[Rfam]
RNA sequence: GGCCGUAGCUCAGCAGUUCCUUCAACUACAAACCAAUUAAAUAACCCUCUCCAGGGUUUGAGACCUGUAGGCACUCUCC
Numbered sequence: 001g002g003c004c005g006u007a008g009c010u011c012a013g014c015a016g017u018u019c020c021u022u023c024a025a026c027u028a029c030a031a032a033c034c035a036a037u038u039a040a041a042u043a044a045c046c047c048u049c050u051c052c053a054g055g056g057u058u059u060g061a062g063a064c065c066u067g068u069a070g071g072c073a074c075u076c077u078c079c
Stems, first nucleotide, its partner, number of pairs: 001079002008072003013068004021062005
The family of this 79-nucleotide RNA from Bos grunniens is "Vault RNA".
The source organism's lineage runs through Eukaryota, Metazoa, Gnathostomata, Theria and Bos.